[Rfam]
RNA: U4 spliceosomal RNA
Organism: Chelonoidis abingdonii
RNA sequence: UAUCAUGUGGUUUAGAUCAAGUGUAACCAAUGAAGUUAAUCUGAGGUGUGAUUAUUGCUAGUUGAAAACUUUUCCCAUUACCCAAGUUUAGAGAACAAAAAGUUUCUAUAACAUCCCUCCCUGUUACUCUGUCUAUUGA
Number, nucleotide and partner (000 for none) at each position: 001u000002a000003u000004c000005a000006u000007g000008u000009g000010g000011u000012u000013u000014a000015g000016a000017u000018c000019a000020a052021g000022u050023g049024u048025a000026a047027c046028c045029a000030a000031u000032g000033a000034a042035g041036u000037u000038a000039a000040u000041c035042u034043g000044a000045g028046g027047u026048g024049u023050g022051a000052u020053u000054a000055u000056u000057g000058c000059u000060a000061g000062u000063u000064g000065a000066a000067a000068a000069c000070u000071u000072u000073u000074c000075c000076c000077a000078u000079u000080a000081c000082c000083c000084a000085a114086g000087u000088u111089u110090a109091g000092a107093g106094a105095a104096c000097a000098a000099a000100a000101a000102g000103u000104u095105u094106c093107u092108a000109u090110a089111a088112c000113a000114u085115c000116c000117c000118u000119c000120c000121c000122u000123g000124u000125u000126a000127c000128u139129c138130u000131g136132u000133c000134u000135a000136u131137u000138g129139a128